RNA sequence: GAACCGGGACGACCCGGUCGCGUCUUUCGAUUCACGGGGACGGCCCCG
Numbered sequence: 001g002a003a004c005c006g007g008g009a010c011g012a013c014c015c016g017g018u019c020g021c022g023u024c025u026u027u028c029g030a031u032u033c034a035c036g037g038g039g040a041c042g043g044c045c046c047c048g
Base pairs, nucleotide, nucleotide: 003018004017005016006015007014008013035048036047037046038045039044
RNA: Guanidine-II riboswitch aptamer (mini-ykkC)
Organism: Burkholderia glumae